[Rfam]
A member of the RNA family "epsC RNA" from Falsibacillus pallidus, 121 nucleotides long. The match comes from Rfam's covariance-model search (102 bits). The family's RNA type in Rfam is cis-regulatory element. The family has 30 seed sequences and 450 matches in Rfam 15.1. The organism belongs to Falsibacillus, within Bacteria.
Nucleotides: 121
Base pairs, nucleotide, nucleotide: 001019002018003017007034008033009032010031011030012029013028035104036103037102038101039099040098041097042096043095044094045093046092049072050071051070055066056065075088076087077086078085108120109119110118111117
Number, partner (000 for none) and nucleotide at each position: 001019u002018g003017g004000u005000a006000a007034u008033g009032u010031c011030u012029c013028c014000u015000u016000u017003c018002c019001g020000u021000u022000a023000u024000c025000a026000a027000u028013g029012g030011a031010g032009g033008u034007a035104c036103u037102c038101g039099g040098c041097c042096a043095u044094g045093c046092u047000g048000u049072g050071g051070g052000c053000a054000g055066u056065g057000g058000u059000a060000a061000u062000c063000a064000g065056c066055a067000g068000g069000a070051c071050c072049u073000u074000a075088g076087a077086c078085g079000c080000g081000u082000a083000g084000u085078c086077g087076u088075c089000g090000a091000u092046a093045g094044u095043g096042u097041g098040g099039c100000g101038u102037g103036a104035g105000g106000g107000c108120g109119g110118g111117u112000u113000a114000g115000a116000u117111g118110c119109c120108c121000a